[Rfam]
RNA sequence: GGCCUCCCUCUUUGGGGUGAUCGAUCGUGGGGAUCCACGAUUGAUCGCCCACCAGAGGGAGGCC
Numbered sequence: 001g002g003c004c005u006c007c008c009u010c011u012u013u014g015g016g017g018u019g020a021u022c023g024a025u026c027g028u029g030g031g032g033a034u035c036c037a038c039g040a041u042u043g044a045u046c047g048c049c050c051a052c053c054a055g056a057g058g059g060a061g062g063c064c
Stems, first nucleotide, its partner, number of pairs: 001064011015050016

The record is a 64-nucleotide RNA sequence from Myotis lucifugus, which matches "mir-9242 microRNA precursor family" in Rfam. A search with the family's covariance model found it, with a score of 66 bits. Pairs were carried over by alignment from the consensus structure, which was predicted with RNAalifold.